Rfam assigns this 183-nucleotide RNA from Variovorax sp. OV329 to the family "Manganese Mn2+ riboswitch aptamer (yybP-ykoY)". It scores 77 bits against the family's covariance model. Taxonomically the source falls in Variovorax (Bacteria, Pseudomonadati, Betaproteobacteria, Burkholderiales). This RNA was originally discovered in E. coli during a large scale screen and was named SraF. The family was later found to exist upstream of related families of protein genes in many bacteria, including the the yybP and ykoK genes in B. subtilis. Rfam 15.1 lists 1,126 matches to the family in 1,062 species. Its family is annotated with manganese ion binding in the Gene Ontology.
Nucleotides: 183
Stems, first nucleotide, its partner, number of pairs: 026043003045091002048088007062081007092182004098176001
Number, partner (000 for none) and nucleotide at each position: 001000a002000a003000g004000g005000u006000u007000g008000u009000c010000a011000u012000u013000g014000g015000g016000g017000a018000g019000u020000a021000g022000c023000c024000g025000c026043c027042u028041u029000c030000c031000g032000a033000u034000c035000u036000g037000c038000g039000a040000g041028a042027a043026g044000g045091g046090c047000c048088c049087g050086c051085g052084u053083c054082a055000a056000c057000a058000g059000a060000c061000u062081u063080g064079u065078c066077c067076u068075g069000c070000c071000c072000c073000a074000c075068c076067g077066g078065g079064a080063c081062a082054u083053g084052g085051c086050g087049c088048g089000u090046g091045c092182a093181g094180u095179g096000a097000a098176u099000a100000c101000c102000u103000g104000g105000c106000g107000a108000g109000a110000c111000c112000a113000u114000u115000g116000a117000c118000u119000g120000u121000g122000c123000a124000a125000c126000u127000u128000c129000g130000g131000g132000a133000a134000g135000a136000u137000g138000g139000c140000c141000g142000a143000a144000g145000g146000g147000u148000u149000g150000c151000a152000u153000g154000g155000u156000c157000a158000a159000u160000u161000g162000c163000g164000u165000c166000c167000u168000u169000c170000g171000g172000c173000c174000a175000g176098g177000a178000g179095c180094a181093u182092u183000u